RNA: U11 spliceosomal RNA
RNA sequence: UAAAAGGGUCGGUUGGCUAAAUAUGCCACGCCCACCCUCGUUCGGUGGGUGCCGUAUGGCUAUCAAGACAUAUGGCCGACAUAAUUUGUGGAAACCCCAUAGGGUUGGCUCGCUCGGCCGACCCUCCA
Numbered sequence: 001u002a003a004a005a006g007g008g009u010c011g012g013u014u015g016g017c018u019a020a021a022u023a024u025g026c027c028a029c030g031c032c033c034a035c036c037c038u039c040g041u042u043c044g045g046u047g048g049g050u051g052c053c054g055u056a057u058g059g060c061u062a063u064c065a066a067g068a069c070a071u072a073u074g075g076c077c078g079a080c081a082u083a084a085u086u087u088g089u090g091g092a093a094a095c096c097c098c099a100u101a102g103g104g105u106u107g108g109c110u111c112g113c114u115c116g117g118c119c120g121a122c123c124c125u126c127c128a
Base pairs, nucleotide, nucleotide: 008080009079010078011077012076014028015027016026017025029051030050031049032048033047034046035045036044052075053074054073055072056071057070058069101125102124103123104122105121106120107119108118110117111116